Ascomycota telomerase RNA: a 207-nucleotide part of an RNA from Fusarium nygamai.
Rfam links the family to the GO terms telomerase activity, telomerase catalytic core complex and telomere maintenance via telomerase.
The pairing is the family consensus, mapped onto this sequence.
Clan: Telomerase clan.
RNA sequence: UCCCCCACAGUCCUCCGGUCCUCGUUUCUCGCAAGGGAUCCUAUUGUAGGCACUCGCAUCAUUUGGUUACCCUCCCAUAUGCCGCUCUCGAGCCUGUAACAGGACCUCGUGAAUGCCGCAGCCGGAUUAUGGUGGGUAGCGCGUCCUGUAUAGGACGUACCAAGCGGGCGGGUGAACGAGGCUCGGAACUUAACCCUAAGAAGAUAU
Numbered sequence: 001u002c003c004c005c006c007a008c009a010g011u012c013c014u015c016c017g018g019u020c021c022u023c024g025u026u027u028c029u030c031g032c033a034a035g036g037g038a039u040c041c042u043a044u045u046g047u048a049g050g051c052a053c054u055c056g057c058a059u060c061a062u063u064u065g066g067u068u069a070c071c072c073u074c075c076c077a078u079a080u081g082c083c084g085c086u087c088u089c090g091a092g093c094c095u096g097u098a099a100c101a102g103g104a105c106c107u108c109g110u111g112a113a114u115g116c117c118g119c120a121g122c123c124g125g126a127u128u129a130u131g132g133u134g135g136g137u138a139g140c141g142c143g144u145c146c147u148g149u150a151u152a153g154g155a156c157g158u159a160c161c162a163a164g165c166g167g168g169c170g171g172g173u174g175a176a177c178g179a180g181g182c183u184c185g186g187a188a189c190u191u192a193a194c195c196c197u198a199a200g201a202a203g204a205u206a207u
Stems, first nucleotide, its partner, number of pairs: 009190003015186004
Lineage of the source: Eukaryota > sordariomyceta > Hypocreomycetidae > Hypocreales > Fusarium fujikuroi species complex.
It is annotated as a non-coding RNA gene.